[Rfam]
Shown here is a 130-nucleotide RNA from Streptococcus hillyeri, a member of the family "Streptococcus sRNA SpR19". The match comes from Rfam's covariance-model search (80 bits).

RNA sequence: GUUUCUUUAGCGAGUUCGGGGUGGUGGAAGCCGAAUAGGGAUGCAGAGUAAUUGGCGCUUUCGCUUGACGUGUCAAGUUAACAACGAAAUAAAUGAAGUAAUAAAUUAGGGUGGAACCGCGUUUUCAACG
Number, nucleotide and partner (000 for none) at each position: 001g117002u116003u115004u114005c113006u111007u110008u000009a000010g000011c000012g000013a000014g069015u068016u067017c000018g000019g000020g062021g061022u000023g059024g058025u057026g056027g000028a000029a053030g052031c000032c000033g000034a000035a000036u046037a000038g000039g000040g000041a000042u000043g000044c000045a000046g036047a000048g000049u000050a000051a000052u030053u029054g000055g000056c026057g025058c024059u023060u000061u021062c020063g000064c000065u000066u000067g016068a015069c014070g000071u000072g000073u000074c000075a000076a000077g000078u000079u000080a000081a000082c098083a000084a000085c095086g094087a000088a000089a000090u000091a000092a000093a000094u086095g085096a000097a000098g082099u000100a000101a000102u000103a000104a000105a000106u000107u000108a000109g000110g007111g006112u000113g005114g004115a003116a002117c001118c000119g000120c000121g000122u000123u000124u000125u000126c000127a000128a000129c000130g000